[Rfam]
RNA: TPP riboswitch aptamer (THI element)
RNA sequence: AACGAAAUGCAGGGGAACCCGCACCACUAGGCGGGUUGAGAUGGGCGAUGGCCCGACCCUUUGAACCUGUUGGUUAAGACCAGCGUAGGGAGCAGUGAUAUAUGAGCG
Numbered sequence: 001a002a003c004g005a006a007a008u009g010c011a012g013g014g015g016a017a018c019c020c021g022c023a024c025c026a027c028u029a030g031g032c033g034g035g036u037u038g039a040g041a042u043g044g045g046c047g048a049u050g051g052c053c054c055g056a057c058c059c060u061u062u063g064a065a066c067c068u069g070u071u072g073g074u075u076a077a078g079a080c081c082a083g084c085g086u087a088g089g090g091a092g093c094a095g096u097g098a099u100a101u102a103u104g105a106g107c108g
Base pairs, nucleotide, nucleotide: 006096008094009093010092011060012059013058014057017036018035019034020033021032043053044052046050066089067088068087069086070083071082072081073080